The record is a 114-nucleotide sequence from Mesorhizobium sp. L-8-10, which matches "Alphaproteobacterial ar15" in Rfam. The family is grouped with related families in Rfam's "suhB sRNA clan". A search with the family's covariance model found it, with a score of 45 bits. Pairs were carried over by alignment from the consensus structure. The family's RNA type in Rfam is small RNA.
[Rfam]
RNA sequence: AUCUCCUGGGCGCGUUCCUCCUCCCAUUGGCGCCCACGAGUGUUCCCCUCUGGAGGUUUUGCCUUUUUAGGCGCUUCCAAUCACUUGGCCGGAUCGUUUCGAUCCGGCUUUUUU
Numbered sequence: 001a002u003c004u005c006c007u008g009g010g011c012g013c014g015u016u017c018c019u020c021c022u023c024c025c026a027u028u029g030g031c032g033c034c035c036a037c038g039a040g041u042g043u044u045c046c047c048c049u050c051u052g053g054a055g056g057u058u059u060u061g062c063c064u065u066u067u068u069a070g071g072c073g074c075u076u077c078c079a080a081u082c083a084c085u086u087g088g089c090c091g092g093a094u095c096g097u098u099u100c101g102a103u104c105c106g107g108c109u110u111u112u113u114u
Base pairs, nucleotide, nucleotide: 001041003040004039005038007036008035009034012033013032014031015030051079052078053077054076055075056074057073087109088108089107090106091105092104093103094102095101096100